[Rfam]
RNA: Y RNA
Organism: Piliocolobus tephrosceles
RNA sequence: GGCUGGUCUGAAGGUAGUGAGUUAUCUCAAUUGAUUGUUCACAGUCAGUUACAGAUCAAACUCCUUGUUCUACUCUCUGCCUUUCUCACUACUGCACUUGACUAGUCUAAA
Numbered sequence: 001g002g003c004u005g006g007u008c009u010g011a012a013g014g015u016a017g018u019g020a021g022u023u024a025u026c027u028c029a030a031u032u033g034a035u036u037g038u039u040c041a042c043a044g045u046c047a048g049u050u051a052c053a054g055a056u057c058a059a060a061c062u063c064c065u066u067g068u069u070c071u072a073c074u075c076u077c078u079g080c081c082u083u084u085c086u087c088a089c090u091a092c093u094g095c096a097c098u099u100g101a102c103u104a105g106u107c108u109a110a111a
Stems, first nucleotide, its partner, number of pairs: 001107008010099002014095002016090006044074001047071002